[Rfam]
RNA sequence: UUGCAUAUGAUGAUAUACUCGGAUUCCCCUACACGAUGUAAUGAAUGAUGUAACUCGAGUUUUCUGAUGCG
Numbered sequence: 001u002u003g004c005a006u007a008u009g010a011u012g013a014u015a016u017a018c019u020c021g022g023a024u025u026c027c028c029c030u031a032c033a034c035g036a037u038g039u040a041a042u043g044a045a046u047g048a049u050g051u052a053a054c055u056c057g058a059g060u061u062u063u064c065u066g067a068u069g070c071g
Stems, first nucleotide, its partner, number of pairs: 002071004
Shown here is a 71-nucleotide sequence from Cannabis sativa, a member of the family "Small nucleolar RNA snoR60". The source organism's lineage runs through Eukaryota, Mesangiospermae, eudicotyledons, rosids and Cannabis. Clan: SNORD101 clan. Its family is annotated with RNA processing and nucleolus in the Gene Ontology. The literature on the family includes a 2000 paper in J Biol Chem by Barneche et al., "Fibrillarin genes encode both a conserved nucleolar protein and a novel small nucleolar RNA involved in ribosomal RNA methylation in Arabidopsis thaliana". The family's consensus secondary structure was predicted with PFOLD. A search with the family's covariance model found it, with a score of 61 bits.